[Rfam]
RNA sequence: CUGCUGUGGUGAUGAUGAUGACAGUUGUCUUUUUCCUGAAACAGUUGAUGUGGGGUUUCAGUCACUACCUCAUCUGAACAGUCA
Numbered sequence: 001c002u003g004c005u006g007u008g009g010u011g012a013u014g015a016u017g018a019u020g021a022c023a024g025u026u027g028u029c030u031u032u033u034u035c036c037u038g039a040a041a042c043a044g045u046u047g048a049u050g051u052g053g054g055g056u057u058u059c060a061g062u063c064a065c066u067a068c069c070u071c072a073u074c075u076g077a078a079c080a081g082u083c084a
Stems, first nucleotide, its partner, number of pairs: 003082005
Dot-bracket structure: ..(((((......................................................................)))))..